[Rfam]
RNA sequence: AGGUCGGGCCUUUCAGGCAUCCUCUCCCAAAGACUUCAACAGGGUCGGCUCUUCGGAGCCGGCCCUUUUUUUAUCCAUA
Numbered sequence: 001a002g003g004u005c006g007g008g009c010c011u012u013u014c015a016g017g018c019a020u021c022c023u024c025u026c027c028c029a030a031a032g033a034c035u036u037c038a039a040c041a042g043g044g045u046c047g048g049c050u051c052u053u054c055g056g057a058g059c060c061g062g063c064c065c066u067u068u069u070u071u072u073a074u075c076c077a078u079a
Base pairs, nucleotide, nucleotide: 008018009017010016011015043064044063045062046061047060048059049058050057051056

A member of the RNA family "Makes More Granules Regulator RNA (mmgR)" from Novosphingobium kunmingense, 79 nucleotides long. From the family's description: SuhB later renamed mmgR (makes more granules regulator) was a putative non-coding RNA found multiple times in the Agrobacterium tumefaciens genome and related alpha-proteobacteria. Other non-coding RNAs uncovered in the same analysis include: speF, ybhL, metA, and serC.Several studies inSinorhizobium meliloti showed that suhB element is indeed a non-coding RNA:firstly it was detected on Northern blot and called Sm8RNA, secondly in an RNAseq study referred to as SmelC689.The mutant phenotype's (strain lacking the small RNA) cytoplasm contains higher content of polyhydroxybutyrate (PBH)storage granules than wild type strain. The organism belongs to Novosphingobium, within Bacteria.